Description
The record is a 145-nucleotide RNA sequence from Flavobacterium piscinae, which matches "Flavo-1 RNA" in Rfam.
RNA sequence: UUUUAGCCCUGAUGGUAGUGGAUAGCUUUUUUUGAAAGAAACACUAUUUUUUGUUGCUGUUUCAAAGCGACUUUAGAAGCUAUUGAAACGGCUUACAAAAAAAGGGUUUAUUCAAAAAAACUAAGAACGGACAGCAGGAUUAGCU
Numbered sequence: 001u002u003u004u005a006g007c008c009c010u011g012a013u014g015g016u017a018g019u020g021g022a023u024a025g026c027u028u029u030u031u032u033u034g035a036a037a038g039a040a041a042c043a044c045u046a047u048u049u050u051u052u053g054u055u056g057c058u059g060u061u062u063c064a065a066a067g068c069g070a071c072u073u074u075a076g077a078a079g080c081u082a083u084u085g086a087a088a089c090g091g092c093u094u095a096c097a098a099a100a101a102a103a104g105g106g107u108u109u110a111u112u113c114a115a116a117a118a119a120a121c122u123a124a125g126a127a128c129g130g131a132c133a134g135c136a137g138g139a140u141u142a143g144c145u
Base pairs, nucleotide, nucleotide: 009137010136011135013133014132018128019127023123024122025121029118030117031116032115033114034113035112036111

A search with the family's covariance model found it, with a score of 59 bits.